[Rfam]
RNA: Alphaproteobacteria transfer-messenger RNA
RNA sequence: CCCCUUGCGUCACAGGGCGCGCGCGCCUAUCUUCGUCGAGUCCCGCAAGGGACUAUGGUGAUAAACGCGCGUGCAAUAAGCGGAUCGGACCCGGGGGCGGUACCCGGCGGCUCCACCAAACUCCCACAUUGGCGGGACAGCGGGGCCGAAACAGGAUCGACGGACGUGUAAAGACGUUAGCUUUCACUCGGCAGGACGCCACCGUUACCGGCUCAAGCAUGAUAGUUGCCAAUGACAACCGUGCUCCGGUCGCGCUCGCUGCGUAAGCAGUGCGCAAGAUCGAAAACUAAGUCCUGAUCUCUAGCAAGAUCAGGCGGGGUUCGCAGGCACCUGGCAACAGAAGCCUGCACU
Numbered sequence: 001c002c003c004c005u006u007g008c009g010u011c012a013c014a015g016g017g018c019g020c021g022c023g024c025g026c027c028u029a030u031c032u033u034c035g036u037c038g039a040g041u042c043c044c045g046c047a048a049g050g051g052a053c054u055a056u057g058g059u060g061a062u063a064a065a066c067g068c069g070c071g072u073g074c075a076a077u078a079a080g081c082g083g084a085u086c087g088g089a090c091c092c093g094g095g096g097g098c099g100g101u102a103c104c105c106g107g108c109g110g111c112u113c114c115a116c117c118a119a120a121c122u123c124c125c126a127c128a129u130u131g132g133c134g135g136g137a138c139a140g141c142g143g144g145g146c147c148g149a150a151a152c153a154g155g156a157u158c159g160a161c162g163g164a165c166g167u168g169u170a171a172a173g174a175c176g177u178u179a180g181c182u183u184u185c186a187c188u189c190g191g192c193a194g195g196a197c198g199c200c201a202c203c204g205u206u207a208c209c210g211g212c213u214c215a216a217g218c219a220u221g222a223u224a225g226u227u228g229c230c231a232a233u234g235a236c237a238a239c240c241g242u243g244c245u246c247c248g249g250u251c252g253c254g255c256u257c258g259c260u261g262c263g264u265a266a267g268c269a270g271u272g273c274g275c276a277a278g279a280u281c282g283a284a285a286a287c288u289a290a291g292u293c294c295u296g297a298u299c300u301c302u303a304g305c306a307a308g309a310u311c312a313g314g315c316g317g318g319g320u321u322c323g324c325a326g327g328c329a330c331c332u333g334g335c336a337a338c339a340g341a342a343g344c345c346u347g348c349a350c351u
Stems, first nucleotide, its partner, number of pairs: 040053005057188005067181002069177004081166002085163003091107005108148007189204003195214002198212003317332004323348006